The record is a 59-nucleotide RNA from Palleronia aestuarii, which matches "sul1 RNA" in Rfam. The source organism's lineage runs through Bacteria, Alphaproteobacteria, Rhodobacterales, Roseobacteraceae and Palleronia. It is annotated as a riboswitch. A search with the family's covariance model found it, with a score of 66 bits.

RNA sequence: UCAGGACCCGUGACGAGACGCACGGGUGGCUCUCCCGGCCGCCGAUCCGCCGGGCAACC
Numbered sequence: 001u002c003a004g005g006a007c008c009c010g011u012g013a014c015g016a017g018a019c020g021c022a023c024g025g026g027u028g029g030c031u032c033u034c035c036c037g038g039c040c041g042c043c044g045a046u047c048c049g050c051c052g053g054g055c056a057a058c059c
Stems, first nucleotide, its partner, number of pairs: 006027006034054006